[Rfam]
RNA: Plant signal recognition particle RNA
RNA sequence: GUCGAGCUCAGUAACAAGGGUUGUGACCCAUGUGGGGACAACAAGUUGGUUGAACACUGGCUCGGUCCACAGGUGGGAUCUGUUGUGGCACUGUUCUGGGCUGCCCAGUCCAAGCUGAGAGUGAACCGUCUGUGUUGAGCGAAGGCUUGGCUCAGGCGGUUCCUAAAGUGGAGGACAAUGCGCUAGGCUGGUUUCACAGAGCAGCGAUCACCUCCUCUUUCGGCAGUGGACGGAUCACGGCUCAAUGUCACUCAGGUUCACCGUGGCCUGCUGGCUCGCACCCAGCUGGACAACCAUAUUU
Numbered sequence: 001g002u003c004g005a006g007c008u009c010a011g012u013a014a015c016a017a018g019g020g021u022u023g024u025g026a027c028c029c030a031u032g033u034g035g036g037g038a039c040a041a042c043a044a045g046u047u048g049g050u051u052g053a054a055c056a057c058u059g060g061c062u063c064g065g066u067c068c069a070c071a072g073g074u075g076g077g078a079u080c081u082g083u084u085g086u087g088g089c090a091c092u093g094u095u096c097u098g099g100g101c102u103g104c105c106c107a108g109u110c111c112a113a114g115c116u117g118a119g120a121g122u123g124a125a126c127c128g129u130c131u132g133u134g135u136u137g138a139g140c141g142a143a144g145g146c147u148u149g150g151c152u153c154a155g156g157c158g159g160u161u162c163c164u165a166a167a168g169u170g171g172a173g174g175a176c177a178a179u180g181c182g183c184u185a186g187g188c189u190g191g192u193u194u195c196a197c198a199g200a201g202c203a204g205c206g207a208u209c210a211c212c213u214c215c216u217c218u219u220u221c222g223g224c225a226g227u228g229g230a231c232g233g234a235u236c237a238c239g240g241c242u243c244a245a246u247g248u249c250a251c252u253c254a255g256g257u258u259c260a261c262c263g264u265g266g267c268c269u270g271c272u273g274g275c276u277c278g279c280a281c282c283c284a285g286c287u288g289g290a291c292a293a294c295c296a297u298a299u300u301u
Base pairs, nucleotide, nucleotide: 001039002038003037004022005021007020008019009018027036028035029034043300044299047296048295049294050293051292052291055288056287057285058284059283060281063278064277065276066274067273070270071269072268073267074266076259077258078257079256080255081254082253085251086250087249088248097244098243099242100241101240102239103238105233106232108231109230110229111228112227114224115223116222117221118220119219120218121217123162124161125160126159127158128157129156130155131154132153134151135150136149137148138147139146140145163168170215171214172213173212174211181206182205183204188199189198190197